The family of this 61-nucleotide sequence is "Plastid-psbA-4 3UTR RNA". About the family: Plastid psbA-4 is a non-coding RNA (ncRNA) present in plastids. By type it is a cis-regulatory element. For this family Rfam cites "Retrograde signaling in plants: A critical review focusing on the GUN pathway and beyond" (Richter et al., Plant Commun, 2023). The family's consensus secondary structure was predicted with LocARNA.
RNA sequence: AAGUAAAGGAACAAUAGCCAAAUUCUUGAUAGAAUAAGAAAUUGGUUAUUGUUCCUUUACU
Numbered sequence: 001a002a003g004u005a006a007a008g009g010a011a012c013a014a015u016a017g018c019c020a021a022a023u024u025c026u027u028g029a030u031a032g033a034a035u036a037a038g039a040a041a042u043u044g045g046u047u048a049u050u051g052u053u054c055c056u057u058u059a060c061u
Base pairs, nucleotide, nucleotide: 005058006057007056008055009054010053011052012051013050014049015048016047020043021042023040024039025038026037027036028035